[Rfam]
RNA sequence: CGCAGUCAGUGGCCGAGUGGUUAAGGCGAUGGACUAGAAAUCCAUUGGGGUCUCCCCGCGCAGGUUCGAAUCCUGCCGACUGCG
Numbered sequence: 001c002g003c004a005g006u007c008a009g010u011g012g013c014c015g016a017g018u019g020g021u022u023a024a025g026g027c028g029a030u031g032g033a034c035u036a037g038a039a040a041u042c043c044a045u046u047g048g049g050g051u052c053u054c055c056c057c058g059c060g061c062a063g064g065u066u067c068g069a070a071u072c073c074u075g076c077c078g079a080c081u082g083c084g
Base pairs, nucleotide, nucleotide: 001084002083003082004081005080006079007078009076012027013026014025017022028046029045030044031043032042033041048057049056050055061075062074063073064072
Dot-bracket structure: (((((((.(..(((..(....)..)))((((((.......)))))).(((....)))...((((.......))))).)))))))
Background:
Shown here is an 84-nucleotide sequence from Haemaphysalis longicornis, a member of the family "Selenocysteine transfer RNA". It scores 50 bits against the family's covariance model. The family has 109 seed sequences and 4,211 matches in Rfam 15.1. The base pairs follow the family's consensus structure, which is taken from published work. On this family, see Lowe and Eddy, Nucleic Acids Res 1997: "tRNAscan-SE: a program for improved detection of transfer RNA genes in genomic sequence". The organism belongs to Haemaphysalis, within Eukaryota.